Record summary
A member of the RNA family "RNase MRP" from Pleuronectes platessa, 257 nucleotides long. Rfam describes the family as follows. RNase MRP is an enzymatically active ribonucleoprotein with two distinct roles in eukaryotes. The base pairs follow the family's consensus structure, which is taken from published work. Its family is annotated with ribonuclease MRP complex, ribonuclease MRP activity and rRNA processing in the Gene Ontology.
[Rfam]
RNA sequence: GGGCAUUCCGAAGACUUGCACUCUGGGCUACCAACAGAGAACCGGUUUCUCCUCUCCCCGCCCAGGGGAAAGUCCCCGGACCCGAGGCAGAGAGUGCCAUGGUGGAAACCAGCGUCGACCUGCGCUCCGCCGCUCUGGAGCCGAGACGCUCAUGUUGAGCUGAGCUCGGUGGUCACAGGUCGACUUUGUCAGCGGUGAUAGACAUGCAAGUACGCUUCACUACGCCGAAACACAACGGGGCUCAUUCUCAGAAUGCA
Numbered sequence: 001g002g003g004c005a006u007u008c009c010g011a012a013g014a015c016u017u018g019c020a021c022u023c024u025g026g027g028c029u030a031c032c033a034a035c036a037g038a039g040a041a042c043c044g045g046u047u048u049c050u051c052c053u054c055u056c057c058c059c060g061c062c063c064a065g066g067g068g069a070a071a072g073u074c075c076c077c078g079g080a081c082c083c084g085a086g087g088c089a090g091a092g093a094g095u096g097c098c099a100u101g102g103u104g105g106a107a108a109c110c111a112g113c114g115u116c117g118a119c120c121u122g123c124g125c126u127c128c129g130c131c132g133c134u135c136u137g138g139a140g141c142c143g144a145g146a147c148g149c150u151c152a153u154g155u156u157g158a159g160c161u162g163a164g165c166u167c168g169g170u171g172g173u174c175a176c177a178g179g180u181c182g183a184c185u186u187u188g189u190c191a192g193c194g195g196u197g198a199u200a201g202a203c204a205u206g207c208a209a210g211u212a213c214g215c216u217u218c219a220c221u222a223c224g225c226c227g228a229a230a231c232a233c234a235a236c237g238g239g240g241c242u243c244a245u246u247c248u249c250a251g252a253a254u255g256c257a
Stems, first nucleotide, its partner, number of pairs: 003256006010249002014211006022066007037051005071242002074240004086098004100111004119179004124174001127172004138167004148160004213227002215224001217222001